[Rfam]
The family of this 74-nucleotide sequence from Methylophilaceae bacterium 11 is "SAH (S-adenosyl-L-homocysteine) riboswitch aptamer".

Nucleotides: 074
Base pairs, nucleotide, nucleotide: 003049004048005047006046007045008044021037022036023035024034
Number, partner (000 for none) and nucleotide at each position: 001000c002000c003049u004048u005047c006046u007045g008044a009000g010000g011000a012000a013000c014000g015000c016000u017000g018000c019000g020000a021037g022036a023035g024034c025000a026000a027000u028000u029000c030000c031000c032000a033000a034024g035023c036022u037021c038000c039000c040000a041000g042000g043000c044008u045007c046006a047005g048004a049003g050000a051000u052000g053000u054000u055000g056000u057000a058000a059000a060000c061000g062000g063000c064000g065000u066000u067000c068000a069000c070000u071000u072000u073000u074000a

It scores 51 bits against the family's covariance model.